[Rfam]
RNA: DUF3800-V RNA
RNA sequence: UUUUUUUGAGCGGUAAGUCCGCUACAGGUUGUUUUAGGUGUUCCCCUCCGUAUGGUGGGCAAGAGCCUAAACGACACAAACUUGUAGGGCACGCUCAUUUU
Numbered sequence: 001u002u003u004u005u006u007u008g009a010g011c012g013g014u015a016a017g018u019c020c021g022c023u024a025c026a027g028g029u030u031g032u033u034u035u036a037g038g039u040g041u042u043c044c045c046c047u048c049c050g051u052a053u054g055g056u057g058g059g060c061a062a063g064a065g066c067c068u069a070a071a072c073g074a075c076a077c078a079a080a081c082u083u084g085u086a087g088g089g090c091a092c093g094c095u096c097a098u099u100u101u
Stems, first nucleotide, its partner, number of pairs: 005097001010094002025084006032078001033071007044059003048055002